The family of this 85-nucleotide RNA sequence from Gracilibacillus ureilyticus is "ZMP/ZTP riboswitch aptamer (pfl RNA motif)". The source organism's lineage runs through Bacteria, Bacilli, Caryophanales, Bacillaceae and Gracilibacillus. The match comes from Rfam's covariance-model search (49 bits).
RNA sequence: UAAAGGUGCAGCAACUGACGACAUUUGUGGAAAUAACCACAAGGGAGCUGUACUUCGUAUAAGUCGGGUCGUCUGGGCAGAGAUA
Numbered sequence: 001u002a003a004a005g006g007u008g009c010a011g012c013a014a015c016u017g018a019c020g021a022c023a024u025u026u027g028u029g030g031a032a033a034u035a036a037c038c039a040c041a042a043g044g045g046a047g048c049u050g051u052a053c054u055u056c057g058u059a060u061a062a063g064u065c066g067g068g069u070c071g072u073c074u075g076g077g078c079a080g081a082g083a084u085a
Stems, first nucleotide, its partner, number of pairs: 004055009015044002017073005027040004063078003

On this family, see Jones and Ferre-D'Amare, Nat Struct Mol Biol 2015: "Recognition of the bacterial alarmone ZMP through long-distance association of two RNA subdomains".
The family's consensus secondary structure is taken from published work.
Rfam links the family to the GO terms one-carbon metabolic process and regulation of purine nucleotide biosynthetic process.